Group I catalytic intron: a 302-nucleotide RNA from Paecilomyces variotii. The source organism's lineage runs through Eukaryota, Pezizomycotina, Eurotiales, Thermoascaceae and Paecilomyces. The base pairs follow the family's consensus structure, which is taken from published work. The match comes from Rfam's covariance-model search (96 bits). Rfam 15.1 lists 5,602 matches to the family in 1,395 species.

RNA sequence: CCGAAAGGGUGAUGUGGUGAUCCUCUAAACAGUAAAUGCUAGUCCGGAUCUCUCUGGGCGACACACUCAAAUUGCGGGAAACCCCUUAAGCUGUCAGCUACCAAGCCACUGAUUCGAAAGAUAGUGGUGGCCAGGUUAAUUGCCUCGGGUAUGGUUACAACGCUGAUAGAUUGGGCAAUCCGCAGCCAAGCCCCUACAGUCCUCUCUGAGGAUAUGGGGAAGGUUCAGAGACUAGAUGGGUGUGGGUUGGUUGGGUGGUCGACCAGCUUAAGAUAUAGUCCGGCGUGGGAAGAAAUUCCAAC
Numbered sequence: 001c002c003g004a005a006a007g008g009g010u011g012a013u014g015u016g017g018u019g020a021u022c023c024u025c026u027a028a029a030c031a032g033u034a035a036a037u038g039c040u041a042g043u044c045c046g047g048a049u050c051u052c053u054c055u056g057g058g059c060g061a062c063a064c065a066c067u068c069a070a071a072u073u074g075c076g077g078g079a080a081a082c083c084c085c086u087u088a089a090g091c092u093g094u095c096a097g098c099u100a101c102c103a104a105g106c107c108a109c110u111g112a113u114u115c116g117a118a119a120g121a122u123a124g125u126g127g128u129g130g131c132c133a134g135g136u137u138a139a140u141u142g143c144c145u146c147g148g149g150u151a152u153g154g155u156u157a158c159a160a161c162g163c164u165g166a167u168a169g170a171u172u173g174g175g176c177a178a179u180c181c182g183c184a185g186c187c188a189a190g191c192c193c194c195u196a197c198a199g200u201c202c203u204c205u206c207u208g209a210g211g212a213u214a215u216g217g218g219g220a221a222g223g224u225u226c227a228g229a230g231a232c233u234a235g236a237u238g239g240g241u242g243u244g245g246g247u248u249g250g251u252u253g254g255g256u257g258g259u260c261g262a263c264c265a266g267c268u269u270a271a272g273a274u275a276u277a278g279u280c281c282g283g284c285g286u287g288g289g290a291a292g293a294a295a296u297u298c299c300a301a302c
Stems, first nucleotide, its partner, number of pairs: 016023001062244005068238002073184006083175003185224002191218003200212005228281001230280005246267009288299004